[Rfam]
RNA sequence: GAGCUAUGAGGAAGAAACUAAUGCAUUCUGAUAUAUCACUGAAGACUGUCAGAUCCAACUCUGAGCUCACUUUCUCU
Numbered sequence: 001g002a003g004c005u006a007u008g009a010g011g012a013a014g015a016a017a018c019u020a021a022u023g024c025a026u027u028c029u030g031a032u033a034u035a036u037c038a039c040u041g042a043a044g045a046c047u048g049u050c051a052g053a054u055c056c057a058a059c060u061c062u063g064a065g066c067u068c069a070c071u072u073u074c075u076c077u
Base pairs, nucleotide, nucleotide: 001068002067003066004065
RNA: Small nucleolar RNA SNORD19
Organism: Sphenodon punctatus